[Rfam]
RNA sequence: UCCGGCAGUGAUGAUACUCUUGCCCUCACUGAGAACAUUGUUCUGUAAUGAGAAUCUUGUAAAUGGAUUCAGAUAAGCUGAGCUGGA
Numbered sequence: 001u002c003c004g005g006c007a008g009u010g011a012u013g014a015u016a017c018u019c020u021u022g023c024c025c026u027c028a029c030u031g032a033g034a035a036c037a038u039u040g041u042u043c044u045g046u047a048a049u050g051a052g053a054a055u056c057u058u059g060u061a062a063a064u065g066g067a068u069u070c071a072g073a074u075a076a077g078c079u080g081a082g083c084u085g086g087a
Stems, first nucleotide, its partner, number of pairs: 001087006
Dot-bracket structure: ((((((...........................................................................))))))
Record summary
The record is an 87-nucleotide sequence from Naja naja, which matches "Small nucleolar RNA SNORD103/SNORD85" in Rfam. By type it is a C/D-box small nucleolar RNA. On this family, see Vitali et al., Nucleic Acids Res 2003: "Identification of 13 novel human modification guide RNAs". Lineage of the source: Eukaryota > Eumetazoa > Sarcopterygii > Elapinae > Naja.